[Rfam]
RNA sequence: UUAACUCAACUUUGUAUGGAGUUGUAACGUUUGCCUACGUUUGCCGCUAGGGGCGCUGUUGUAACUUCAUACAAAGGAGUUA
Numbered sequence: 001u002u003a004a005c006u007c008a009a010c011u012u013u014g015u016a017u018g019g020a021g022u023u024g025u026a027a028c029g030u031u032u033g034c035c036u037a038c039g040u041u042u043g044c045c046g047c048u049a050g051g052g053g054c055g056c057u058g059u060u061g062u063a064a065c066u067u068c069a070u071a072c073a074a075a076g077g078a079g080u081u082a
Stems, first nucleotide, its partner, number of pairs: 010076007018068001020066010034052003039047002
RNA: mir-2807 microRNA precursor family
Organism: Bombyx mori